[Rfam]
RNA: drz-agam-2-2 ribozyme
RNA sequence: UUGAGGUAGCAAUACUGCACUGGUACGGAUCCGAAGCCUCUUGUAUGUUAACAAAGGCUCUCCACACUCUACUUUGACACAAUACGUGCCCGGUAUAUAGAACGGUAACAUGUCUCUCCAAAUAUCUGAGAUUGGGUAUGAGGGGAAACCCAACUCCUUGGGAGGAUGGAUGAUAUGGCUAAAUUGAGCGGA
Numbered sequence: 001u002u003g004a005g006g007u008a009g010c011a012a013u014a015c016u017g018c019a020c021u022g023g024u025a026c027g028g029a030u031c032c033g034a035a036g037c038c039u040c041u042u043g044u045a046u047g048u049u050a051a052c053a054a055a056g057g058c059u060c061u062c063c064a065c066a067c068u069c070u071a072c073u074u075u076g077a078c079a080c081a082a083u084a085c086g087u088g089c090c091c092g093g094u095a096u097a098u099a100g101a102a103c104g105g106u107a108a109c110a111u112g113u114c115u116c117u118c119c120a121a122a123u124a125u126c127u128g129a130g131a132u133u134g135g136g137u138a139u140g141a142g143g144g145g146a147a148a149c150c151c152a153a154c155u156c157c158u159u160g161g162g163a164g165g166a167u168g169g170a171u172g173a174u175a176u177g178g179c180u181a182a183a184u185u186g187a188g189c190g191g192a
Stems, first nucleotide, its partner, number of pairs: 013100001016097001022069002024066001027063003031057002073192004078188001080186004084096001086094001089104001109177006118169002124167004132153006155162002